[Rfam]
The family of this 190-nucleotide RNA sequence from Neobacillus mesonae is "Lysine riboswitch aptamer".
Its family is annotated with lysine biosynthetic process in the Gene Ontology.
Rfam's curators write: Riboswitches are metabolite binding domains within certain messenger RNAs that serve as precision sensors for their corresponding targets.
It scores 117 bits against the family's covariance model.
NCBI's taxonomy places the organism under Bacteria, Bacillati, Bacilli, Bacillaceae, Neobacillus.

RNA sequence: CGAUGGGGUAGAGGUCGCGGCUUUUAUUAGUAGGAUGGACGAGAUGCAGAGACAUCACCUGACUCCAUCUGAAAGGAAAAGCUGCCGAAGUGUACUUUUUCUCUGGUUAAGUAUGCUGGGGCUGUUUCCGAAUAGGAACAGAACUGUCACGAUUGGACCUACCAGCCAAACGUGUUGAGCUAUCUUUCGG
Numbered sequence: 001c002g003a004u005g006g007g008g009u010a011g012a013g014g015u016c017g018c019g020g021c022u023u024u025u026a027u028u029a030g031u032a033g034g035a036u037g038g039a040c041g042a043g044a045u046g047c048a049g050a051g052a053c054a055u056c057a058c059c060u061g062a063c064u065c066c067a068u069c070u071g072a073a074a075g076g077a078a079a080a081g082c083u084g085c086c087g088a089a090g091u092g093u094a095c096u097u098u099u100u101c102u103c104u105g106g107u108u109a110a111g112u113a114u115g116c117u118g119g120g121g122c123u124g125u126u127u128c129c130g131a132a133u134a135g136g137a138a139c140a141g142a143a144c145u146g147u148c149a150c151g152a153u154u155g156g157a158c159c160u161a162c163c164a165g166c167c168a169a170a171c172g173u174g175u176u177g178a179g180c181u182a183u184c185u186u187u188c189g190g
Stems, first nucleotide, its partner, number of pairs: 006185006017085009033070007089117009100106001118145002122141007148174004153169004